Rfam assigns this 70-nucleotide RNA sequence from Antrostomus carolinensis to the family "mir-137 microRNA precursor family". A search with the family's covariance model found it, with a score of 64 bits. Gene Ontology terms of the family: RISC complex and miRNA-mediated post-transcriptional gene silencing.
[Rfam]
RNA sequence: UUGUGUGACGGGUAUUCUCGGGCGGAUAAUACGGCCGCGCUGUUAUUGCUGGAGAAUACGCGUCGCCGAG
Dot-bracket structure: ((..(..(((.((((((((.(((.(((((((((....)).)))))))))).)))))))).)))..)..))